[Rfam]
RNA sequence: UCGCAUCCGCUAUCCGGUCCAGCCGUGUCGCGGAAGGUUUUCCAACCAGCUAAUGUUUCCCAGAGGGAAACGGAGGUCAGCG
Numbered sequence: 001u002c003g004c005a006u007c008c009g010c011u012a013u014c015c016g017g018u019c020c021a022g023c024c025g026u027g028u029c030g031c032g033g034a035a036g037g038u039u040u041u042c043c044a045a046c047c048a049g050c051u052a053a054u055g056u057u058u059c060c061c062a063g064a065g066g067g068a069a070a071c072g073g074a075g076g077u078c079a080g081c082g
Base pairs, nucleotide, nucleotide: 002082003081004080006034007033008032009031010030015025016024017023018022036047037046038045039044049077050076051075055071056070057069058068059067060066061065